The record is a 174-nucleotide sequence from Craterilacuibacter sinensis, which matches "Manganese Mn2+ riboswitch aptamer (yybP-ykoY)" in Rfam. A search with the family's covariance model found it, with a score of 56 bits. Rfam's curators write: This RNA was originally discovered in E. coli during a large scale screen and was named SraF. The family was later found to exist upstream of related families of protein genes in many bacteria, including the the yybP and ykoK genes in B. subtilis. The specific functions of these proteins are unknown, but this structured RNA element may be involved in their genetic regulation as a riboswitch. The source organism's lineage runs through Bacteria, Pseudomonadati, Pseudomonadota, Neisseriales and Craterilacuibacter. A reference for the family is Argaman et al. (2001), "Novel small RNA-encoding genes in the intergenic regions of Escherichia coli", Curr Biol.
RNA sequence: ACUCUGGGGGAGUAGCCUCGGUGCGGGACAGCACCGGUGCAUGUCAACACACUUGGCUUAACGGCCAUGGCAUGCGCGACCUGAGAAGGUUUGGCAAGACCCAUGACGUACCGCGCGCCCGUUCAGGGGCUGCCGCGCGGCUGCGUCAUGGCUUGUCUGCAGCCCCUUAGGACC
Dot-bracket structure: ...................(((..........))).((((((((((.......(((((....)))))))))))))))(.(((((..................................................................................))))).).